[Rfam]
RNA sequence: UUCGAUAUAGGGCAAACUACUUGAAAAAGUAGGACGCAAAACUAUAGGGGCUAAAUCUUUUGACACGCCAGCCAGUUGCAAAU
Numbered sequence: 001u002u003c004g005a006u007a008u009a010g011g012g013c014a015a016a017c018u019a020c021u022u023g024a025a026a027a028a029g030u031a032g033g034a035c036g037c038a039a040a041a042c043u044a045u046a047g048g049g050g051c052u053a054a055a056u057c058u059u060u061u062g063a064c065a066c067g068c069c070a071g072c073c074a075g076u077u078g079c080a081a082a083u
Stems, first nucleotide, its partner, number of pairs: 012037002017032006040077004047073002049069003056063002
RNA: c-di-GMP-I riboswitch aptamer